[Rfam]
RNA sequence: UGGUAAUCAGAAGAAUUGUUUUCGAAGCAUACAAAUGGAAAUUCUCACACAAUUUAGUGACGAAUAACAAAUAUAAACAAACAUCAAAGAAGAUGAAUACUGCUUUGGGAAAAGUCCCCGGAUCCCAGGAUAGAAAGUAUCACCCGUAAUGGUAAUGUCUCUGUUUGCUGGUACCUUGGCAAAGAAGAAAUUGUCCAGUGUCUUGUGCACCCAAUCUCCGAGUCUUUAGUGCUGCAUUCAAAGUCAAUGAUCGAAGUAAUAGGUUAAUGCAAUUAGGAAUUAUAUUUUUUCUGGUAGCAAUUACAAAUUGUAUUCUAUUAGAAAUUAAUUUCCGUACAGAAUGGGGCUUACUCUCACGAUUACC
Numbered sequence: 001u002g003g004u005a006a007u008c009a010g011a012a013g014a015a016u017u018g019u020u021u022u023c024g025a026a027g028c029a030u031a032c033a034a035a036u037g038g039a040a041a042u043u044c045u046c047a048c049a050c051a052a053u054u055u056a057g058u059g060a061c062g063a064a065u066a067a068c069a070a071a072u073a074u075a076a077a078c079a080a081a082c083a084u085c086a087a088a089g090a091a092g093a094u095g096a097a098u099a100c101u102g103c104u105u106u107g108g109g110a111a112a113a114g115u116c117c118c119c120g121g122a123u124c125c126c127a128g129g130a131u132a133g134a135a136a137g138u139a140u141c142a143c144c145c146g147u148a149a150u151g152g153u154a155a156u157g158u159c160u161c162u163g164u165u166u167g168c169u170g171g172u173a174c175c176u177u178g179g180c181a182a183a184g185a186a187g188a189a190a191u192u193g194u195c196c197a198g199u200g201u202c203u204u205g206u207g208c209a210c211c212c213a214a215u216c217u218c219c220g221a222g223u224c225u226u227u228a229g230u231g232c233u234g235c236a237u238u239c240a241a242a243g244u245c246a247a248u249g250a251u252c253g254a255a256g257u258a259a260u261a262g263g264u265u266a267a268u269g270c271a272a273u274u275a276g277g278a279a280u281u282a283u284a285u286u287u288u289u290u291c292u293g294g295u296a297g298c299a300a301u302u303a304c305a306a307a308u309u310g311u312a313u314u315c316u317a318u319u320a321g322a323a324a325u326u327a328a329u330u331u332c333c334g335u336a337c338a339g340a341a342u343g344g345g346g347c348u349u350a351c352u353c354u355c356a357c358g359a360u361u362a363c364c
Base pairs, nucleotide, nucleotide: 002364003363004362005361006360007359008358010355011354014274015273016272017271018270019269022108023107024106025105026104027103028102112349113348114347116346117345118344119343129141130140131139132138142153143152144151155244156243165240167238171237172236178224179223180222187218188217190215191214192213193212276333277332278331279330281328
RNase MRP: a 364-nucleotide sequence from Dictyostelium discoideum. The source organism's lineage runs through Eukaryota, Evosea, Dictyosteliaceae, Dictyostelium and Dictyostelium discoideum. Rfam describes the family as follows. RNase MRP is an enzymatically active ribonucleoprotein with two distinct roles in eukaryotes. In mitochondria it plays a direct role in the initiation of mitochondrial DNA replication. In the nucleus it is involved in precursor rRNA processing, where it cleaves the internal transcribed spacer 1 between 18S and 5.8S rRNAs. Despite distinct functions, RNase MRP has been shown to be evolutionarily related to RNase P. Like eukaryotic RNase P, RNase MRP is not catalytically active without associated protein subunits. Rfam classes the family as a ribozyme. A reference for the family is Schmitt et al. (1993), "Secondary structure of RNase MRP RNA as predicted by phylogenetic comparison", FASEB J.